[Rfam]
RNA sequence: CUUAUACAUUAAGAGAAGGUUAAGACCUCAGCAACCUGGAUGACUAUCCAAGGUGCUUGAAGAUGUGGCAGAAAUGCAACUAACUAGUCAAAA
Numbered sequence: 001c002u003u004a005u006a007c008a009u010u011a012a013g014a015g016a017a018g019g020u021u022a023a024g025a026c027c028u029c030a031g032c033a034a035c036c037u038g039g040a041u042g043a044c045u046a047u048c049c050a051a052g053g054u055g056c057u058u059g060a061a062g063a064u065g066u067g068g069c070a071g072a073a074a075u076g077c078a079a080c081u082a083a084c085u086a087g088u089c090a091a092a093a
Stems, first nucleotide, its partner, number of pairs: 006066005015029001017028004030057003035053003038049003042088001068077003
RNA: SAM-I/IV (S-adenosyl methionine) riboswitch aptamer